[Rfam]
RNA sequence: UAGCCAGGGGGGUCAACACCCGUCAGCGCGAUGCGCCCACGGGUGCGUUUUUG
Numbered sequence: 001u002a003g004c005c006a007g008g009g010g011g012g013u014c015a016a017c018a019c020c021c022g023u024c025a026g027c028g029c030g031a032u033g034c035g036c037c038c039a040c041g042g043g044u045g046c047g048u049u050u051u052u053g
Stems, first nucleotide, its partner, number of pairs: 017045007026036004
Dot-bracket structure: ................(((((((..((((...))))..)))))))........
The family of this 53-nucleotide sequence from Methyloceanibacter superfactus is "ffh sRNA". For this family Rfam cites "Identification of candidate structured RNAs in the marine organism 'Candidatus Pelagibacter ubique'" (Meyer et al., BMC Genomics, 2009). The family's RNA type in Rfam is small RNA. Lineage of the source: Bacteria > Pseudomonadati > Alphaproteobacteria > Hyphomicrobiaceae > Methyloceanibacter. The match comes from Rfam's covariance-model search (63 bits).